This 76-nucleotide RNA sequence from Hemibagrus wyckioides belongs to the Rfam family "mir-193 microRNA precursor family". The match comes from Rfam's covariance-model search (72 bits). On this family, see Linsen et al., BMC Genomics 2010: "Small RNA expression and strain specificity in the rat". Pairs were carried over by alignment from the consensus structure, which was predicted with RNAalifold.
RNA sequence: UGCCAGUGGCGGGGUUUUGGGGGCGAGAUGUGUUUCAGUUUUAAUCCAACUGGCCCGCAAAGUCCCGCUUCUGGUG
Dot-bracket structure: ..((((.(.((((.(((((.((((.((.((................)).)).)))).))))).)))).).))))..
Numbered sequence: 001u002g003c004c005a006g007u008g009g010c011g012g013g014g015u016u017u018u019g020g021g022g023g024c025g026a027g028a029u030g031u032g033u034u035u036c037a038g039u040u041u042u043a044a045u046c047c048a049a050c051u052g053g054c055c056c057g058c059a060a061a062g063u064c065c066c067g068c069u070u071c072u073g074g075u076g
Stems, first nucleotide, its partner, number of pairs: 003074004008069001010067004015062005021056004026051002029048002